Rfam assigns this 78-nucleotide sequence from Erythrobacter aureus to the family "Makes More Granules Regulator RNA (mmgR)". The family has 87 seed sequences and 1,791 matches in Rfam 15.1. It scores 53 bits against the family's covariance model. The source organism's lineage runs through Bacteria, Pseudomonadati, Pseudomonadota, Alphaproteobacteria and Erythrobacter. Its family is annotated with protein binding, DNA-templated transcription, termination and response to nitrogen compound in the Gene Ontology.
[Rfam]
RNA sequence: UCCACUUGCCUUUCAGGCAUCCUCUCCCAAGACUUCCAAGCCCGGUUGGUUCGCCAGCCGGGCUUUUUUCUUGUGUUU
Numbered sequence: 001u002c003c004a005c006u007u008g009c010c011u012u013u014c015a016g017g018c019a020u021c022c023u024c025u026c027c028c029a030a031g032a033c034u035u036c037c038a039a040g041c042c043c044g045g046u047u048g049g050u051u052c053g054c055c056a057g058c059c060g061g062g063c064u065u066u067u068u069u070c071u072u073g074u075g076u077u078u
Base pairs, nucleotide, nucleotide: 008018009017010016011015040063041062042061043060044059045058046057047056048055